A member of the RNA family "Early nodulin 40" from Phoenix dactylifera, 243 nucleotides long. By type it is a non-coding RNA gene. Its family is annotated with nodulation in the Gene Ontology. For this family Rfam cites "Identification of conserved secondary structures and expansion segments in enod40 RNAs reveals new enod40 homologues in plants" (Gultyaev and Roussis, Nucleic Acids Res, 2007). NCBI's taxonomy places the organism under Eukaryota, Streptophytina, Embryophyta, Phoeniceae, Phoenix. Rfam 15.1 lists 341 matches to the family in 193 species.
RNA sequence: AUGGAAAUUCUCUGGCAGGAAUCUCUGCAUGGGUCUUGAAUAAGAGCAUGGACCUUGGAGGGAGGGGAGGCCUUGCCUCCGUCUCCUCUCCAAAUCCACCAGUUUUGUCCAUGUUUUGGCAACCAGCUUGUCUCAUAGGUGCAUGACUGCAAAUUCUGGCCGUGUCCAGUGGGGCUUCUGGCUCAAAGCAUGGCGAACCGGCAAGUCACAAAACGGCGAUGGGAAACUCCAGCAAGGAUCUCC
Numbered sequence: 001a002u003g004g005a006a007a008u009u010c011u012c013u014g015g016c017a018g019g020a021a022u023c024u025c026u027g028c029a030u031g032g033g034u035c036u037u038g039a040a041u042a043a044g045a046g047c048a049u050g051g052a053c054c055u056u057g058g059a060g061g062g063a064g065g066g067g068a069g070g071c072c073u074u075g076c077c078u079c080c081g082u083c084u085c086c087u088c089u090c091c092a093a094a095u096c097c098a099c100c101a102g103u104u105u106u107g108u109c110c111a112u113g114u115u116u117u118g119g120c121a122a123c124c125a126g127c128u129u130g131u132c133u134c135a136u137a138g139g140u141g142c143a144u145g146a147c148u149g150c151a152a153a154u155u156c157u158g159g160c161c162g163u164g165u166c167c168a169g170u171g172g173g174g175c176u177u178c179u180g181g182c183u184c185a186a187a188g189c190a191u192g193g194c195g196a197a198c199c200g201g202c203a204a205g206u207c208a209c210a211a212a213a214c215g216g217c218g219a220u221g222g223g224a225a226a227c228u229c230c231a232g233c234a235a236g237g238a239u240c241u242c243c
Stems, first nucleotide, its partner, number of pairs: 057091005102198003106195003225241001228238002